[Rfam]
Nucleotides: 080
Base pairs, nucleotide, nucleotide: 001080002079004077006075007074009072012069013068014067015066016065018063019062020061021060022059024057025054026053027052028051029050032049033048
Number, partner (000 for none) and nucleotide at each position: 001080u002079a003000u004077g005000a006075a007074u008000c009072u010000u011000a012069u013068g014067g015066a016065a017000g018063c019062a020061u021060u022059u023000c024057u025054g026053c027052a028051c029050a030000a031000a032049c033048u034000a035000g036000a037000u038000u039000a040000u041000g042000a043000a044000u045000a046000u047000c048033a049032g050029u051028g052027u053026g054025c055000c056000a057024a058000a059022a060021a061020a062019u063018g064000c065016u066015u067014c068013u069012g070000c071000u072009a073000u074007a075006u076000c077004u078000c079002u080001a
Rfam assigns this 80-nucleotide sequence from Vulpes vulpes to the family "mir-147 microRNA precursor family". Taxonomically the source falls in Vulpes (Eukaryota, Eumetazoa, Vertebrata, Boreoeutheria). A reference for the family is Kawaji et al. (2008), "Hidden layers of human small RNAs", BMC Genomics.